A member of the RNA family "Guanidine-II riboswitch aptamer (mini-ykkC)" from Pantoea sp. M_5, 47 nucleotides long. About the family: Simpler in structure and has fewer highly conserved nucleotide positions than the ykkC-yxkD leader. Despite this each of its two stem-loop structures directly bind free guanidine. Therefore, mini-ykkC RNA motif represents a distinct class of guanidine-sensing RNAs. Its crystal structure was also determined.
RNA sequence: CCCCGGGGACGGCCCCAGGGAAUAGCGAAUUCUGCGGGACGACCCGC
Numbered sequence: 001c002c003c004c005g006g007g008g009a010c011g012g013c014c015c016c017a018g019g020g021a022a023u024a025g026c027g028a029a030u031u032c033u034g035c036g037g038g039a040c041g042a043c044c045c046g047c
Base pairs, nucleotide, nucleotide: 001020002019003018005016006015007014008013034047035046036045037044038043